U4 spliceosomal RNA: a 135-nucleotide RNA from Rhizoctonia solani. Taxonomically the source falls in Rhizoctonia solani AG-1 (Eukaryota, Opisthokonta, Fungi, Agaricomycetes). It is annotated as a spliceosomal small nuclear RNA. Pairs were carried over by alignment from the consensus structure, which is taken from published work.

RNA sequence: UCUCUUGUGCUCGGGCACGCGCUGACACCAGUGAGGUCUUUACCGAGGUUCAGCUAUUUGCUGGUUGCAAAUUAACUACCAAACCCGUCUCCUCUCCGUAAGGAGUUGAGCAAUUUUUGGCCAAGUUUACACACA
Numbered sequence: 001u002c003u004c005u006u007g008u009g010c011u012c013g014g015g016c017a018c019g020c021g022c023u024g025a026c027a028c029c030a031g032u033g034a035g036g037u038c039u040u041u042a043c044c045g046a047g048g049u050u051c052a053g054c055u056a057u058u059u060g061c062u063g064g065u066u067g068c069a070a071a072u073u074a075a076c077u078a079c080c081a082a083a084c085c086c087g088u089c090u091c092c093u094c095u096c097c098g099u100a101a102g103g104a105g106u107u108g109a110g111c112a113a114u115u116u117u118u119g120g121c122c123a124a125g126u127u128u129a130c131a132c133a134c135a
Stems, first nucleotide, its partner, number of pairs: 021054005027049003035044003087111001089110003094105004125134002